Shown here is a 155-nucleotide RNA sequence from Lathyrus oleraceus, a member of the family "U12 minor spliceosomal RNA". Rfam classes the family as a spliceosomal small nuclear RNA. The source organism's lineage runs through Eukaryota, eudicotyledons, Gunneridae, rosids and Lathyrus. Clan: U2 clan. Rfam 15.1 lists 2,106 matches to the family in 1,170 species. A search with the family's covariance model found it, with a score of 95 bits.
RNA sequence: UUGCCUUAAACUAAUGAGUAAGGAAAACAAAGCAAACAGUGGGAGCUGUUUGCUGCAUCUAUCAUUAUGAUGCAAUAAUUUUUGGAGGGGUUAUAGGCUGGUCGUGUGUUGACGCUGUUACUUUGCAGAACUCACACGUGCGGGCCUCCCAACCC
Numbered sequence: 001u002u003g004c005c006u007u008a009a010a011c012u013a014a015u016g017a018g019u020a021a022g023g024a025a026a027a028c029a030a031a032g033c034a035a036a037c038a039g040u041g042g043g044a045g046c047u048g049u050u051u052g053c054u055g056c057a058u059c060u061a062u063c064a065u066u067a068u069g070a071u072g073c074a075a076u077a078a079u080u081u082u083u084g085g086a087g088g089g090g091u092u093a094u095a096g097g098c099u100g101g102u103c104g105u106g107u108g109u110u111g112a113c114g115c116u117g118u119u120a121c122u123u124u125g126c127a128g129a130a131c132u133c134a135c136a137c138g139u140g141c142g143g144g145c146c147u148c149c150c151a152a153c154c155c
Stems, first nucleotide, its partner, number of pairs: 004023005032053008054074005088155005095147005101141001103138002106135003115128004
Dot-bracket structure: ...(((((..........)))))........((((((((......))))))))(((((...........))))).............(((((..(((((.(.((.(((......((((......))))....))).))..).)))))...)))))